[Rfam]
About this RNA
A member of the RNA family "Small Cajal body specific RNA 1" from Varanus komodoensis, 154 nucleotides long. The family has 29 seed sequences and 715 matches in Rfam 15.1. The match comes from Rfam's covariance-model search (114 bits). scaRNAs are a specific class of small nuclear RNAs which localise to the Cajal bodies and guide the modification of RNA polymerase II transcribed spliceosomal RNAs U1, U2, U4, U5 and U12. ACA35 belong to the H/ACA box class of guide RNAs as it has the predicted hairpin-hinge-hairpin-tail structure, conserved H/ACA-box motifs and is found associated with GAR1. It is predicted to guide pseudouridylation of the U2 spliceosomal snRNA at residue U89. Taxonomically the source falls in Varanus (Eukaryota, Sarcopterygii, Unidentata, Varanoidea). Rfam links the family to the GO terms RNA processing, nucleolus and Cajal body. Pairs were carried over by alignment from the consensus structure, which was predicted with RNAalifold.
RNA sequence: AAGCACUUGAUACUAACCAAGCCAUCUUUACCUUAGUCCAGAGGUAUAACUUGUGAUUGGCUGGGUCUAAGAAGUGCAACAUCAAAGCAAGCCAUGAAGUGAUCAAGCUCAGUAUGUGGAGAGUCACACUGGGUUAUGAUUCAGAGGCACAGAU
Numbered sequence: 001a002a003g004c005a006c007u008u009g010a011u012a013c014u015a016a017c018c019a020a021g022c023c024a025u026c027u028u029u030a031c032c033u034u035a036g037u038c039c040a041g042a043g044g045u046a047u048a049a050c051u052u053g054u055g056a057u058u059g060g061c062u063g064g065g066u067c068u069a070a071g072a073a074g075u076g077c078a079a080c081a082u083c084a085a086a087g088c089a090a091g092c093c094a095u096g097a098a099g100u101g102a103u104c105a106a107g108c109u110c111a112g113u114a115u116g117u118g119g120a121g122a123g124u125c126a127c128a129c130u131g132g133g134u135u136a137u138g139a140u141u142c143a144g145a146g147g148c149a150c151a152g153a154u
Stems, first nucleotide, its partner, number of pairs: 003077006016066003020062004024057003027048001029046006091148003112127002117122001129144006